RNA sequence: AUGGAUCCAAUAGGAAUUGAACUUACGAAUUUUCCAAUUAUGAGUUGGGCGCUUUAACCAUUCAACCAUGGAUGC
Numbered sequence: 001a002u003g004g005a006u007c008c009a010a011u012a013g014g015a016a017u018u019g020a021a022c023u024u025a026c027g028a029a030u031u032u033u034c035c036a037a038u039u040a041u042g043a044g045u046u047g048g049g050c051g052c053u054u055u056a057a058c059c060a061u062u063c064a065a066c067c068a069u070g071g072a073u074g075c
Stems, first nucleotide, its partner, number of pairs: 003075001005073004011025004040069003044066006051059001